Background: A member of the RNA family "Small nucleolar RNA SNORA25" from Suricata suricatta, 127 nucleotides long. Taxonomically the source falls in Suricata (Eukaryota, Metazoa, Eumetazoa, Vertebrata). Rfam's curators write: ACA25 is a member of the H/ACA class of snoRNA that guide the sites of modification of uridines to pseudouridines. It scores 108 bits against the family's covariance model. The family has 30 seed sequences and 1,129 matches in Rfam 15.1.
RNA sequence: AGGUCAUUUCAAAGAGGGAUUCGGGAAUUAAAACCAAGAGCUCUUAAUUCUAUGACCAAAUAUUGAUGUUUUCCACAGGAUGUAAUAGUUACUCAGCAGCACCAUGAUUUCCUGAGGAGAUAUAAAA
Numbered sequence: 001a002g003g004u005c006a007u008u009u010c011a012a013a014g015a016g017g018g019a020u021u022c023g024g025g026a027a028u029u030a031a032a033a034c035c036a037a038g039a040g041c042u043c044u045u046a047a048u049u050c051u052a053u054g055a056c057c058a059a060a061u062a063u064u065g066a067u068g069u070u071u072u073c074c075a076c077a078g079g080a081u082g083u084a085a086u087a088g089u090u091a092c093u094c095a096g097c098a099g100c101a102c103c104a105u106g107a108u109u110u111c112c113u114g115a116g117g118a119g120a121u122a123u124a125a126a127a
Stems, first nucleotide, its partner, number of pairs: 002057006014045005020039002024035002070120005077113004085105002088102001090101001092099002

The base pairs follow the family's consensus structure, which was predicted with RNAfold.